RNA sequence: GCGCCCGUAGCUCAGCAGGAUAGAGCACCAGAUUCCUAAUCUGGGGGCCACAGGUUCGAAUCCUGUCGGGCGCA
Numbered sequence: 001g002c003g004c005c006c007g008u009a010g011c012u013c014a015g016c017a018g019g020a021u022a023g024a025g026c027a028c029c030a031g032a033u034u035c036c037u038a039a040u041c042u043g044g045g046g047g048c049c050a051c052a053g054g055u056u057c058g059a060a061u062c063c064u065g066u067c068g069g070g071c072g073c074a
Stems, first nucleotide, its partner, number of pairs: 001073007010026004028044005050066005
tRNA: a 74-nucleotide sequence from Caenibius tardaugens. Transfer RNA (tRNA) molecules are approximately 80 nucleotides in length. The family's consensus secondary structure is taken from published work. The organism belongs to Caenibius tardaugens, within Bacteria. It scores 73 bits against the family's covariance model.